Rfam assigns this 115-nucleotide sequence from Coprothermobacter proteolyticus to the family "SAM riboswitch aptamer (S box leader)".
NCBI's taxonomy places the organism under Bacteria, Pseudomonadati, Coprothermobacterota, Coprothermobacter, Coprothermobacter proteolyticus.
The family's consensus secondary structure is taken from published work.
The SAM riboswitch is found upstream of a number of genes which code for proteins involved in methionine or cysteine biosynthesis in Gram-positive bacteria.
The sequence is in the family's curated seed alignment.
RNA sequence: UUCUUAUCCAGAGCGGUGGAGGGAAAGGCCCGAAGAAGCCCGGCAACCAGCGAGGGAGAAAACCGAGCAUGGUGCCAACUCCUUCUGCACCAAGUCUGGUGCAGGAAGAUAAGAA
Numbered sequence: 001u002u003c004u005u006a007u008c009c010a011g012a013g014c015g016g017u018g019g020a021g022g023g024a025a026a027g028g029c030c031c032g033a034a035g036a037a038g039c040c041c042g043g044c045a046a047c048c049a050g051c052g053a054g055g056g057a058g059a060a061a062a063c064c065g066a067g068c069a070u071g072g073u074g075c076c077a078a079c080u081c082c083u084u085c086u087g088c089a090c091c092a093a094g095u096c097u098g099g100u101g102c103a104g105g106a107a108g109a110u111a112a113g114a115a
Base pairs, nucleotide, nucleotide: 001115002114003113004112005111006110007109008108013041015040016039017038021031022030023029025084026083027082028081042076043075044074045073047072048071050068051067080107085104086103087102088101089100090099